A member of the RNA family "mir-728 microRNA precursor family" from Sphaeramia orbicularis, 62 nucleotides long. Gene Ontology terms of the family: miRNA-mediated post-transcriptional gene silencing and RISC complex. The base pairs follow the family's consensus structure, which was predicted with RNAalifold. The source organism's lineage runs through Eukaryota, Bilateria, Clupeocephala, Apogonoidei and Sphaeramia. A search with the family's covariance model found it, with a score of 78 bits.

[Rfam]
RNA sequence: AAAUGUAGUAGACUAUAAGUAUACAUCAAAAUGAGAAAGUAUACUAAGUAUACUACGUUUAC
Numbered sequence: 001a002a003a004u005g006u007a008g009u010a011g012a013c014u015a016u017a018a019g020u021a022u023a024c025a026u027c028a029a030a031a032u033g034a035g036a037a038a039g040u041a042u043a044c045u046a047a048g049u050a051u052a053c054u055a056c057g058u059u060u061a062c
Base pairs, nucleotide, nucleotide: 001060002059003058004057005056006055007054008053009052012049013048014047018045019044020043021042022041023040024039